[Rfam]
RNA sequence: CAGUGGGACACUCCUCCCCAACGAGGAGCGCCUAUCUGAGAGGAUAGCAUAU
Numbered sequence: 001c002a003g004u005g006g007g008a009c010a011c012u013c014c015u016c017c018c019c020a021a022c023g024a025g026g027a028g029c030g031c032c033u034a035u036c037u038g039a040g041a042g043g044a045u046a047g048c049a050u051a052u
Stems, first nucleotide, its partner, number of pairs: 011028006032047006
RNA: serC leader
Organism: Pannonibacter phragmitetus